[Rfam]
RNA sequence: ACGCGACAAUACUAAACCACCCGCGAGGGUGGGGCGGAAAGCCUAGGGUCUUGAAAACCAAGACAGCCGGGAUGCCGAA
Numbered sequence: 001a002c003g004c005g006a007c008a009a010u011a012c013u014a015a016a017c018c019a020c021c022c023g024c025g026a027g028g029g030u031g032g033g034g035c036g037g038a039a040a041g042c043c044u045a046g047g048g049u050c051u052u053g054a055a056a057a058c059c060a061a062g063a064c065a066g067c068c069g070g071g072a073u074g075c076c077g078a079a
Base pairs, nucleotide, nucleotide: 012037013036017032018031019030020029021028022027040073042071043070046068047067048064049063050062051061052060053059